[Rfam]
RNA sequence: AUAUGCCGGGAUCGCCAUCUGCCAGCGCGUUGCGCCCGCAGGUGCCCUUGGU
Numbered sequence: 001a002u003a004u005g006c007c008g009g010g011a012u013c014g015c016c017a018u019c020u021g022c023c024a025g026c027g028c029g030u031u032g033c034g035c036c037c038g039c040a041g042g043u044g045c046c047c048u049u050g051g052u
Stems, first nucleotide, its partner, number of pairs: 016044007025035004
Rfam assigns this 52-nucleotide sequence from Pseudorhodobacter sp. MZDSW-24AT to the family "ffh sRNA". The literature on the family includes a 2009 paper in BMC Genomics by Meyer et al., "Identification of candidate structured RNAs in the marine organism 'Candidatus Pelagibacter ubique'". By type it is a small RNA. It scores 53 bits against the family's covariance model. Pairs were carried over by alignment from the consensus structure, which is taken from published work. Lineage of the source: Bacteria > Pseudomonadati > Rhodobacterales > Paracoccaceae > Pseudorhodobacter.